[Rfam]
This 196-nucleotide RNA sequence from Centaurea solstitialis belongs to the Rfam family "mir-172 microRNA precursor family". For this family Rfam cites "Computational Identification of Plant MicroRNAs and Their Targets, Including a Stress-Induced miRNA" (Jones-Rhoades and Bartel, Mol Cell, 2004). The organism belongs to Centaurea, within Eukaryota.
RNA sequence: UUUCUUGCUAUUGCAGCAUCAUCAAGAUUCACAAAAAGUUUCAUUGAUCGAUCACUAGUUAGGGUUAUCGAUCGAUGCUUAUGAUGCAAAAUCUUUAAAGUUUAUAUCGAUCUCCCUUCUUACUUAUAUAAGGGCGGGCCAUUAUCCUUCGGAGUUGAUUGUUUGAGAAUCUUGAUGAUGCUGCAGUGGCAAUUAA
Numbered sequence: 001u002u003u004c005u006u007g008c009u010a011u012u013g014c015a016g017c018a019u020c021a022u023c024a025a026g027a028u029u030c031a032c033a034a035a036a037a038g039u040u041u042c043a044u045u046g047a048u049c050g051a052u053c054a055c056u057a058g059u060u061a062g063g064g065u066u067a068u069c070g071a072u073c074g075a076u077g078c079u080u081a082u083g084a085u086g087c088a089a090a091a092u093c094u095u096u097a098a099a100g101u102u103u104a105u106a107u108c109g110a111u112c113u114c115c116c117u118u119c120u121u122a123c124u125u126a127u128a129u130a131a132g133g134g135c136g137g138g139c140c141a142u143u144a145u146c147c148u149u150c151g152g153a154g155u156u157g158a159u160u161g162u163u164u165g166a167g168a169a170u171c172u173u174g175a176u177g178a179u180g181c182u183g184c185a186g187u188g189g190c191a192a193u194u195a196a
Base pairs, nucleotide, nucleotide: 010187011186012185013184014183015182016181017180018179019178020177021176022175023174024173025172026171027170028169029168030167032165033164034163035162
Dot-bracket structure: .........(((((((((((((((((((((.((((..............................................................................................................................)))).))))))))))))))))))))).........

Rfam's curators write: mir-172 has been experimentally verified in Arabidopsis thaliana. This family is thought to target mRNAs coding for APETALA2-like transcription factors. The mature sequence is excised from the 3' arm of the hairpin. It scores 81 bits against the family's covariance model.